RNA sequence: GGAGGCGGAUGGGGUACUGGUGUCCCUCCCGGUCUUCAAAACCGAGCGUGAGGCAUGGGAUGUCUCAGGUGGGUUCGAUUCCCACACGCUUCC
Numbered sequence: 001g002g003a004g005g006c007g008g009a010u011g012g013g014g015u016a017c018u019g020g021u022g023u024c025c026c027u028c029c030c031g032g033u034c035u036u037c038a039a040a041a042c043c044g045a046g047c048g049u050g051a052g053g054c055a056u057g058g059g060a061u062g063u064c065u066c067a068g069g070u071g072g073g074u075u076c077g078a079u080u081c082c083c084a085c086a087c088g089c090u091u092c093c
Stems, first nucleotide, its partner, number of pairs: 001093007012027003016023002028046001030044004049067005070084004
Dot-bracket structure: (((((((....(((.((....)).)))(.((((.......)))).)..(((((.........)))))..((((.......))))..)))))))

Shown here is a 93-nucleotide RNA from Effusibacillus dendaii, a member of the family "Selenocysteine transfer RNA". The match comes from Rfam's covariance-model search (66 bits). Pairs were carried over by alignment from the consensus structure, which is taken from published work.